[Rfam]
Rfam assigns this 100-nucleotide sequence from Methanococcoides burtonii to the family "Pyrrolysine insertion sequence mtbB". For this family Rfam cites "Effects of using coding potential, sequence conservation and mRNA structure conservation for predicting pyrroly-sine containing genes" (Theil Have et al., BMC Bioinformatics, 2013). NCBI's taxonomy places the organism under Archaea, Methanobacteriota, Methanosarcinales, Methanococcoides, Methanococcoides burtonii. The base pairs follow the family's consensus structure, which was predicted with WAR. The family has 23 seed sequences and 59 matches in Rfam 15.1.
RNA sequence: UAGAUUGGUGUUGGUGACCCAAUGGGUAUGCCAAUCUCACACAUCAUGGCUUCCGGUAUGACCGGUAUGAGAGCAGCUGGUGACCUUGUUGCAAGGAUGC
Dot-bracket structure: ......(..((((((((((.....))).)))))))..)..................................(((((.((....)).)))))........
Numbered sequence: 001u002a003g004a005u006u007g008g009u010g011u012u013g014g015u016g017a018c019c020c021a022a023u024g025g026g027u028a029u030g031c032c033a034a035u036c037u038c039a040c041a042c043a044u045c046a047u048g049g050c051u052u053c054c055g056g057u058a059u060g061a062c063c064g065g066u067a068u069g070a071g072a073g074c075a076g077c078u079g080g081u082g083a084c085c086u087u088g089u090u091g092c093a094a095g096g097a098u099g100c
Stems, first nucleotide, its partner, number of pairs: 007038001010035007017027003073092005079086002